[Rfam]
This 138-nucleotide sequence from Lactobacillus selangorensis belongs to the Rfam family "Ribosomal protein L20 leader". NCBI's taxonomy places the organism under Bacteria, Bacilli, Lactobacillales, Lactobacillaceae, Lactobacillus.

RNA sequence: AAAUAAAAGUAGAAGUUCCCGCUUCUCGCCUGAGGCAUAAAUAAGUGCCUGGGCUCAUGCAAGACUCUCUGUGGGAGAGUCGAAUGAAGUGUUGAAAGAGCGGGUUCAGUCUGACUGAAGCCGUUCUUUUUCUGCGUU
Dot-bracket structure: ..........((((((....)))))).(((...(((.(.....)..)))..)))............................................(((((.((((.......)))).))))).............